Rfam assigns this 131-nucleotide RNA sequence from Desulfosporosinus sp. HMP52 to the family "c-di-AMP riboswitch aptamer (ydaO/yuaA leader)". A search with the family's covariance model found it, with a score of 104 bits. This family represents a conserved RNA structure found upstream of the ydaO and yuaA genes in Bacillus subtilis and related genes in other bacteria. The source organism's lineage runs through Bacteria, Clostridia, Eubacteriales, Desulfitobacteriaceae and Desulfosporosinus.
RNA sequence: UUAAUCCAUUUGCUGAAUUUCCAAAAGGAAAACGGGGGAACCAAUUCUUGGGGUGAAUCGCCUAAUGGCGUAGAGCAGUUUUUCAGCUCGAACCCGACAGCUAACCUCGUAAGCGUUGAAAGACACGAUAU
Numbered sequence: 001u002u003a004a005u006c007c008a009u010u011u012g013c014u015g016a017a018u019u020u021c022c023a024a025a026a027g028g029a030a031a032a033c034g035g036g037g038g039a040a041c042c043a044a045u046u047c048u049u050g051g052g053g054u055g056a057a058u059c060g061c062c063u064a065a066u067g068g069c070g071u072a073g074a075g076c077a078g079u080u081u082u083u084c085a086g087c088u089c090g091a092a093c094c095c096g097a098c099a100g101c102u103a104a105c106c107u108c109g110u111a112a113g114c115g116u117u118g119a120a121a122g123a124c125a126c127g128a129u130a131u
Stems, first nucleotide, its partner, number of pairs: 011115004018031003032110006042050002051095003059070004073089004